Shown here is a 97-nucleotide sequence from Nicotiana attenuata, a member of the family "MIR6152 microRNA precursor family".

Nucleotides: 097
Stems, first nucleotide, its partner, number of pairs: 002096002012089002015086002018083002021081002024078002027076006035066003038060007
Number, partner (000 for none) and nucleotide at each position: 001000u002096g003095g004000c005000g006000u007000g008000a009000a010000a011000c012089a013088u014000g015086g016085u017000a018083u019082u020000c021081g022080a023000c024078u025077g026000u027076a028075u029074u030073c031072a032071c033000g034000g035066c036065g037064u038060g039059a040058a041057a042056c043055a044054g045000g046000g047000g048000a049000u050000u051000a052000c053000a054044c055043u056042g057041u058040u059039u060038u061000u062000a063000a064037a065036c066035g067000g068000a069000a070000a071032g072031u073030g074029a075028a076027u077025c078024a079000a080022u081021u082019a083018a084000c085016a086015u087000a088013a089012u090000a091000g092000a093000c094000u095003c096002c097000u